The family of this 143-nucleotide RNA sequence from Bacillus spizizenii is "Bacillus sRNA ncr952". By type it is a small RNA. Taxonomically the source falls in Bacillus spizizenii (Bacteria, Bacillota, Caryophanales, Bacillus). The base pairs follow the family's consensus structure, which is taken from published work.
RNA sequence: GGGGGUGGGAACAUGGCAUGUGGUCCAAAUAUGAUUAUCGUUUUGAAUGAACUCGAUGAUCCGAAUGUAAGAAUAAUUGUAGAAUGCAGAAUUUAAAUUAAAUCAUUGUGGUUUGCUUCCUGUUCAUGUGAACAGGGAGUUUU
Numbered sequence: 001g002g003g004g005g006u007g008g009g010a011a012c013a014u015g016g017c018a019u020g021u022g023g024u025c026c027a028a029a030u031a032u033g034a035u036u037a038u039c040g041u042u043u044u045g046a047a048u049g050a051a052c053u054c055g056a057u058g059a060u061c062c063g064a065a066u067g068u069a070a071g072a073a074u075a076a077u078u079g080u081a082g083a084a085u086g087c088a089g090a091a092u093u094u095a096a097a098u099u100a101a102a103u104c105a106u107u108g109u110g111g112u113u114u115g116c117u118u119c120c121u122g123u124u125c126a127u128g129u130g131a132a133c134a135g136g137g138a139g140u141u142u143u
Base pairs, nucleotide, nucleotide: 023048024047026045027044028043029042052082053081055078056077057076059074060072061071063068094115095114096113097112099110100109102107116139117138118137119136120135121134122133123132124131125130